[Rfam]
Actino-pnp RNA: a 59-nucleotide RNA from Winogradskya consettensis. The family's consensus secondary structure is taken from published work. Lineage of the source: Bacteria > Bacillati > Actinomycetota > Actinomycetes > Winogradskya. By type it is a cis-regulatory element.

RNA sequence: ACCGGUCCUCGGUAGUGGUUCCCGGGCCAGAAUCCCGGGCACUUCGAUCGAAGACCGGC
Dot-bracket structure: .((((((.(((((...(((.((((((.......)))))).)))...))))).)))))).
Numbered sequence: 001a002c003c004g005g006u007c008c009u010c011g012g013u014a015g016u017g018g019u020u021c022c023c024g025g026g027c028c029a030g031a032a033u034c035c036c037g038g039g040c041a042c043u044u045c046g047a048u049c050g051a052a053g054a055c056c057g058g059c
Stems, first nucleotide, its partner, number of pairs: 002058006009051005017043003021039006